Nucleotides: 173
Stems, first nucleotide, its partner, number of pairs: 018074002021071005028064001030062002034055002037052005098166005104159001121140003
Number, partner (000 for none) and nucleotide at each position: 001000u002000c003000u004000u005000c006000c007000u008000g009000a010000u011000u012000u013000a014000a015000g016000a017000a018074c019073u020000u021071u022070g023069u024068u025067a026000u027000a028064a029000c030062u031061g032000u033000a034055a035054g036000c037052c038051u039050u040049g041048g042000u043000c044000u045000u046000u047000u048041c049040c050039a051038a052037g053000u054035c055034u056000u057000g058000u059000a060000g061031u062030a063000a064028u065000g066000u067025u068024a069023a070022c071021a072000u073019g074018g075000u076000a077000c078000a079000u080000a081000c082000a083000g084000g085000a086000a087000g088000a089000a090000g091000a092000g093000u094000a095000a096000a097000c098166g099165c100164a101163c102162u103000a104159g105000u106000a107000c108000u109000u110000g111000u112000g113000a114000c115000c116000u117000g118000u119000u120000u121140g122139g123138a124000c125000c126000g127000c128000u129000u130000u131000c132000u133000u134000a135000a136000u137000g138123u139122c140121c141000c142000a143000u144000a145000u146000g147000c148000a149000g150000u151000g152000u153000c154000u155000a156000a157000g158000a159104c160000a161000a162102a163101g164100u165099g166098c167000a168000a169000c170000a171000g172000u173000u